The record is a 58-nucleotide RNA, which matches "Glutamine-II riboswitch aptamer" in Rfam. The sequence is in the family's curated seed alignment. The base pairs follow the family's consensus structure, which is taken from published work. The literature on the family includes a 2019 paper in Nucleic Acids Res by Huang et al., "Structure and ligand binding of the glutamine-II riboswitch".
[Rfam]
RNA sequence: AUUCGUUCACUCUUACUAAAGAGCGCAGUUCGAGCUAUACCAUGGAACGGGGGAUAGC
Numbered sequence: 001a002u003u004c005g006u007u008c009a010c011u012c013u014u015a016c017u018a019a020a021g022a023g024c025g026c027a028g029u030u031c032g033a034g035c036u037a038u039a040c041c042a043u044g045g046a047a048c049g050g051g052g053g054a055u056a057g058c
Stems, first nucleotide, its partner, number of pairs: 004049005010023005034058005040052002